[Rfam]
RNA sequence: GGGCGAUGAAGACAGAAAUCGUUUUUCGAUCCUGAUUUUCGAUUAGACUAUCGUUAUCUGAUGACCUAUUUGUGCGUGUCUGAGCCUU
Dot-bracket structure: ((((...............................................................................)))).
Numbered sequence: 001g002g003g004c005g006a007u008g009a010a011g012a013c014a015g016a017a018a019u020c021g022u023u024u025u026u027c028g029a030u031c032c033u034g035a036u037u038u039u040c041g042a043u044u045a046g047a048c049u050a051u052c053g054u055u056a057u058c059u060g061a062u063g064a065c066c067u068a069u070u071u072g073u074g075c076g077u078g079u080c081u082g083a084g085c086c087u088u
Stems, first nucleotide, its partner, number of pairs: 001087004
small nucleolar RNA snoR126: an 88-nucleotide sequence from Camellia sinensis. By type it is a C/D-box small nucleolar RNA. On this family, see Chen and Wu, Nucleic Acids Res 2009: "Mining small RNA sequencing data: a new approach to identify small nucleolar RNAs in Arabidopsis". Rfam links the family to the GO terms RNA processing and nucleolus.